[Rfam]
RNA sequence: GCUGGUGUAGCACAGGUGGUAGUGCACUUCACUCGUAAUGAAGGGGUCGGGGGUUCGAAUCCUCUCACCAGCA
Numbered sequence: 001g002c003u004g005g006u007g008u009a010g011c012a013c014a015g016g017u018g019g020u021a022g023u024g025c026a027c028u029u030c031a032c033u034c035g036u037a038a039u040g041a042a043g044g045g046g047u048c049g050g051g052g053g054u055u056c057g058a059a060u061c062c063u064c065u066c067a068c069c070a071g072c073a
Base pairs, nucleotide, nucleotide: 001072002071003070004069005068006067007066010025011024012023013022027043028042029041030040031039049065050064051063052062053061
The record is a 73-nucleotide RNA from Virgibacillus phasianinus, which matches "tRNA" in Rfam. By type it is a transfer RNA. It scores 67 bits against the family's covariance model. Taxonomically the source falls in Virgibacillus (Bacteria, Bacillati, Bacilli, Caryophanales).